This 69-nucleotide RNA sequence from Podarcis muralis belongs to the Rfam family "Small nucleolar RNA SNORD30". Rfam 15.1 lists 367 matches to the family in 268 species. The organism belongs to Podarcis, within Eukaryota. The family's RNA type in Rfam is C/D-box small nucleolar RNA. The base pairs follow the family's consensus structure. On this family, see Tycowski et al., Nature 1996: "A mammalian gene with introns instead of exons generating stable RNA products".
[Rfam]
RNA sequence: UGACAUGAUGAUCUCACUUGGAAUCUCGUUCGGCUGAAUUUUGCUGUUGAGAAGCGGAAUCUGAGCAUC
Number, nucleotide and partner (000 for none) at each position: 001u000002g000003a000004c000005a000006u000007g000008a000009u000010g000011a000012u000013c000014u000015c000016a000017c000018u000019u000020g000021g000022a000023a000024u052025c051026u050027c049028g048029u000030u000031c046032g045033g044034c043035u000036g000037a000038a000039u000040u000041u000042u000043g034044c033045u032046g031047u000048u028049g027050a026051g025052a024053a000054g000055c000056g000057g000058a000059a000060u000061c000062u000063g000064a000065g000066c000067a000068u000069c000